L31-Actinobacteria ribosomal protein leader: a 49-nucleotide RNA from Gordonia crocea. Rfam classes the family as a cis-regulatory leader.
RNA sequence: CCGGUUCCGGUUCACACCCGAGGCAUUCCGCACGGGUGACCCGGCGACC
Numbered sequence: 001c002c003g004g005u006u007c008c009g010g011u012u013c014a015c016a017c018c019c020g021a022g023g024c025a026u027u028c029c030g031c032a033c034g035g036g037u038g039a040c041c042c043g044g045c046g047a048c049c
Base pairs, nucleotide, nucleotide: 003049004048005047007044008043009042010041015038016037017036018035019034020033022031
The family's consensus secondary structure is taken from published work.